The record is a 106-nucleotide RNA sequence from Paenibacillus ginsengarvi, which matches "azaaromatic riboswitch aptamer (yjdF RNA)" in Rfam. Taxonomically the source falls in Paenibacillus (Bacteria, Bacillota, Bacilli, Paenibacillaceae).
RNA sequence: AAGCGCGGGCGUAAAAACACGGUCCGGUCGGUAGUCCGGAUGCACGGCAAAGUCAGGCCGUGUCGUAACCUUCCCCCUCGGGAUGUCCUUCGCCCCGGGUACCAAG
Number, nucleotide and partner (000 for none) at each position: 001a000002a000003g000004c098005g000006c000007g095008g094009g093010c092011g091012u000013a000014a000015a000016a000017a000018c000019a000020c000021g000022g041023u040024c039025c038026g037027g036028u000029c000030g000031g000032u000033a000034g000035u000036c027037c026038g025039g024040a023041u022042g063043c062044a061045c060046g059047g058048c000049a000050a000051a000052g000053u000054c000055a000056g000057g000058c047059c046060g045061u044062g043063u042064c000065g000066u000067a000068a000069c000070c000071u000072u083073c082074c081075c080076c000077c000078u000079c000080g075081g074082g073083a072084u000085g000086u000087c000088c000089u000090u000091c011092g010093c009094c008095c007096c000097g000098g004099g000100u000101a000102c000103c000104a000105a000106g000